Rfam assigns this 77-nucleotide RNA sequence from Callithrix jacchus to the family "Small nucleolar RNA SNORD115".

RNA sequence: GGGUGGAUGAUGAGAACCUUAUAUCGUCUUGAAGAGAGGUGAUGACUUAAAAAUCAUGCUCAGGCCCGCUGAGGCCC
Numbered sequence: 001g002g003g004u005g006g007a008u009g010a011u012g013a014g015a016a017c018c019u020u021a022u023a024u025c026g027u028c029u030u031g032a033a034g035a036g037a038g039g040u041g042a043u044g045a046c047u048u049a050a051a052a053a054u055c056a057u058g059c060u061c062a063g064g065c066c067c068g069c070u071g072a073g074g075c076c077c
Base pairs, nucleotide, nucleotide: 001077002076003075004074006070008068009067
Overview:
Taxonomically the source falls in Callithrix (Eukaryota, Metazoa, Bilateria, Teleostomi). The family has 32 seed sequences and 3,387 matches in Rfam 15.1. The literature on the family includes a 2000 paper in Proc Natl Acad Sci U S A by Cavaille et al., "Identification of brain-specific and imprinted small nucleolar RNA genes exhibiting an unusual genomic organization".